[Rfam]
RNA sequence: GGGUGGCAAUGAAGAGGAAAAGUCGUGCACCACUCUGAUUUAUUAAUCAGUGAUGAUAAACCUUCUUAUACCCAUUUUUAUCUGAGCCC
Numbered sequence: 001g002g003g004u005g006g007c008a009a010u011g012a013a014g015a016g017g018a019a020a021a022g023u024c025g026u027g028c029a030c031c032a033c034u035c036u037g038a039u040u041u042a043u044u045a046a047u048c049a050g051u052g053a054u055g056a057u058a059a060a061c062c063u064u065c066u067u068a069u070a071c072c073c074a075u076u077u078u079u080a081u082c083u084g085a086g087c088c089c
Base pairs, nucleotide, nucleotide: 001089002088003087004086
RNA: Small nucleolar RNA Z221/R21b
Organism: Camellia sinensis